[Rfam]
RNA sequence: AGUCCUGUAGCUCAGCUUGGUUAGAGCACUACACUGAUAAUGUAGGGGUCAGCAGUUCAAAUCUGCUCGGGACUA
Numbered sequence: 001a002g003u004c005c006u007g008u009a010g011c012u013c014a015g016c017u018u019g020g021u022u023a024g025a026g027c028a029c030u031a032c033a034c035u036g037a038u039a040a041u042g043u044a045g046g047g048g049u050c051a052g053c054a055g056u057u058c059a060a061a062u063c064u065g066c067u068c069g070g071g072a073c074u075a
Base pairs, nucleotide, nucleotide: 001074002073003072004071005070006069007068010027011026012025013024029045030044031043032042033041051067052066053065054064055063